[Rfam]
Nucleotides: 144
Stems, first nucleotide, its partner, number of pairs: 006063005011057002024044005091138003098131002105124001107122001109121005
Number, partner (000 for none) and nucleotide at each position: 001000g002000c003000a004000a005000a006063g007062g008061c009060c010059g011057g012056u013000a014000g015000c016000a017000a018000u019000g020000g021000c022000u023000u024044g025043u026042g027041g028040u029000u030000c031000g032000a033000u034000u035000u036000g037000g038000a039000g040028a041027c042026u043025g044024c045000u046000u047000g048000c049000u050000u051000a052000u053000a054000a055000c056012a057011c058000u059010u060009g061008g062007c063006c064000a065000g066000a067000a068000c069000g070000a071000a072000a073000u074000u075000c076000u077000a078000u079000c080000u081000u082000a083000u084000c085000c086000g087000u088000a089000g090000c091138g092137u093136c094000a095000c096000a097000a098131u099130g100000u101000g102000u103000a104000u105124u106000u107122u108000a109121g110120c111119c112118g113117g114000c115000a116000u117113u118112u119111g120110g121109c122107g123000u124105a125000u126000g127000a128000a129000c130099u131098g132000a133000a134000g135000a136093g137092a138091c139000a140000u141000u142000u143000c144000a
Rfam assigns this 144-nucleotide RNA from Drosophila ananassae to the family "Small nucleolar RNA psi28S-2876". The family's consensus secondary structure was predicted with PFOLD. By type it is an H/ACA-box small nucleolar RNA. psi28S-2876 is a member of the H/ACA class of snoRNA. This family is responsible for guiding the modification of uridines 2876 and 2956 to pseudouridine in Drosophila 28S rRNA. Lineage of the source: Eukaryota > Bilateria > Dicondylia > Endopterygota > ananassae species complex.